A member of the RNA family "Bacillaceae-1 RNA" from Texcoconibacillus texcoconensis, 67 nucleotides long. Rfam 15.1 lists 5,721 matches to the family in 247 species. Lineage of the source: Bacteria > Bacillati > Bacillota > Bacillaceae > Texcoconibacillus. The family's RNA type in Rfam is small RNA.
RNA sequence: UCGUUGGGAAGUUCGGCUAAGUUCGCAACGUCCUGUUGCAACGCCGAACUGACCCACGUCCUGUGCG
Numbered sequence: 001u002c003g004u005u006g007g008g009a010a011g012u013u014c015g016g017c018u019a020a021g022u023u024c025g026c027a028a029c030g031u032c033c034u035g036u037u038g039c040a041a042c043g044c045c046g047a048a049c050u051g052a053c054c055c056a057c058g059u060c061c062u063g064u065g066c067g
Base pairs, nucleotide, nucleotide: 011049012048013047014046015045016044017043025039026038027037028036029035053067055065056064057063